[Rfam]
RNA sequence: UAAACGGCCCUUUUCAGGGCCAUCUAUAUUUUAAGAAAGAGUCUA
Numbered sequence: 001u002a003a004a005c006g007g008c009c010c011u012u013u014u015c016a017g018g019g020c021c022a023u024c025u026a027u028a029u030u031u032u033a034a035g036a037a038a039g040a041g042u043c044u045a
Stems, first nucleotide, its partner, number of pairs: 006021006
RNA: Histone 3' UTR stem-loop